The family of this 85-nucleotide sequence from Sinocyclocheilus anshuiensis is "mir-184 microRNA precursor family". It scores 79 bits against the family's covariance model. The family's consensus secondary structure was predicted with PFOLD.
RNA sequence: UCAACCACAUCUCCUUAUCACUUUUCCAGCCCAGCUAUCCAUUUAGUGUCCGUUGGACGGAGAACUGAUAAGGGCAUGUGCUCGA
Numbered sequence: 001u002c003a004a005c006c007a008c009a010u011c012u013c014c015u016u017a018u019c020a021c022u023u024u025u026c027c028a029g030c031c032c033a034g035c036u037a038u039c040c041a042u043u044u045a046g047u048g049u050c051c052g053u054u055g056g057a058c059g060g061a062g063a064a065c066u067g068a069u070a071a072g073g074g075c076a077u078g079u080g081c082u083c084g085a
Stems, first nucleotide, its partner, number of pairs: 012074009022064006030056002